nhaA-I RNA: a 47-nucleotide sequence.
Rfam classes the family as a riboswitch.
Acidobacteria, Alphaproteobacteria, Betaproteobacteria and Gammaproteobacteria, Verrucomicrobia, cand. division NC10.
The sequence is in the family's curated seed alignment.
RNA sequence: GGGUGCGGCGCCGGGCCGCAGGAGAGCGGAUGGUCGGGCCGCCAUCC
Dot-bracket structure: ....(((((.....)))))........(((((((......)))))))